RNA: Glycine riboswitch aptamer
Organism: Laribacter hongkongensis
RNA sequence: CGCAAUCACUCUGGAGAGCGAGGCUGUCAGGCCUCCACCGAAGGGGCUAACGGUGCUGCGGCACCGGAAAAUCUCAGGUGCCGGGACAGAGGGGUGUAU
Numbered sequence: 001c002g003c004a005a006u007c008a009c010u011c012u013g014g015a016g017a018g019c020g021a022g023g024c025u026g027u028c029a030g031g032c033c034u035c036c037a038c039c040g041a042a043g044g045g046g047c048u049a050a051c052g053g054u055g056c057u058g059c060g061g062c063a064c065c066g067g068a069a070a071a072u073c074u075c076a077g078g079u080g081c082c083g084g085g086a087c088a089g090a091g092g093g094g095u096g097u098a099u
Stems, first nucleotide, its partner, number of pairs: 006094002009091005020035004037079003040075002044073002051066004